Annotation
Rfam assigns this 51-nucleotide sequence from Affinundibacterium nitidum to the family "nhaA-I RNA". The base pairs follow the family's consensus structure, which is taken from published work. Rfam classes the family as a riboswitch. A search with the family's covariance model found it, with a score of 48 bits. NCBI's taxonomy places the organism under Bacteria, Pseudomonadota, Betaproteobacteria, Oxalobacteraceae, Affinundibacterium. About the family: Acidobacteria, Alphaproteobacteria, Betaproteobacteria and Gammaproteobacteria, Verrucomicrobia, cand. division NC10.
RNA sequence: GGGUGCUCAUCCAUGUGGAUGAACAGGUAAAGCGAAGGUCGGGCCGCCUCG
Numbered sequence: 001g002g003g004u005g006c007u008c009a010u011c012c013a014u015g016u017g018g019a020u021g022a023a024c025a026g027g028u029a030a031a032g033c034g035a036a037g038g039u040c041g042g043g044c045c046g047c048c049u050c051g
Stems, first nucleotide, its partner, number of pairs: 005024001007022006033051003037048003